RNA: Caenorhabditis snoRNA ceN110
RNA sequence: AUGCAAGUGUCCAUUACGCGGAGGCUUGUGCCUCAUGACGUUUAGUUUAGCUUGCGAGAUGAAACUGACAUCUCGAAGACAGGCGCAUCGUUCUUGUAGAGCUCCUGUUCAAGAUUGGCAGACAAUC
Numbered sequence: 001a002u003g004c005a006a007g008u009g010u011c012c013a014u015u016a017c018g019c020g021g022a023g024g025c026u027u028g029u030g031c032c033u034c035a036u037g038a039c040g041u042u043u044a045g046u047u048u049a050g051c052u053u054g055c056g057a058g059a060u061g062a063a064a065c066u067g068a069c070a071u072c073u074c075g076a077a078g079a080c081a082g083g084c085g086c087a088u089c090g091u092u093c094u095u096g097u098a099g100a101g102c103u104c105c106u107g108u109u110c111a112a113g114a115u116u117g118g119c120a121g122a123c124a125a126u127c
Base pairs, nucleotide, nucleotide: 003055004054005053006052007051008050016041017040018039019037020036065121066120067119070115071114072113073112075110076109079108080107081106082105083104085102086101